Shown here is a 144-nucleotide RNA from Gossypium lobatum, a member of the family "MIR7502 microRNA precursor family". The base pairs follow the family's consensus structure, which was predicted with RNAalifold. The organism belongs to Gossypium, within Eukaryota.

Nucleotides: 144
Base pairs, nucleotide, nucleotide: 003142004141005140006139007138008137009136010135012133013132014131015130016129018127019126020125021124023123024122026120028118029117030116031115032114033113
Number, partner (000 for none) and nucleotide at each position: 001000c002000a003142u004141u005140a006139a007138a008137a009136a010135u011000u012133u013132c014131a015130u016129u017000a018127a019126u020125u021124u022000a023123u024122a025000c026120u027000g028118u029117u030116a031115a032114a033113a034000a035000c036000u037000a038000g039000c040000a041000u042000g043000a044000u045000g046000a047000a048000u049000a050000a051000a052000a053000u054000a055000a056000c057000u058000u059000g060000a061000u062000a063000g064000u065000u066000a067000c068000a069000c070000g071000u072000a073000g074000c075000a076000u077000a078000c079000c080000a081000u082000g083000u084000g085000u086000a087000u088000c089000u090000c091000a092000u093000u094000c095000u096000g097000a098000c099000a100000u101000a102000c103000a104000a105000a106000g107000g108000c109000u110000a111000g112000c113033u114032u115031u116030u117029a118028a119000c120026a121000a122024u123023a124021a125020a126019a127018u128000u129016g130015a131014u132013g133012a134000c135010a136009u137008u138007u139006u140005u141004a142003a143000c144000a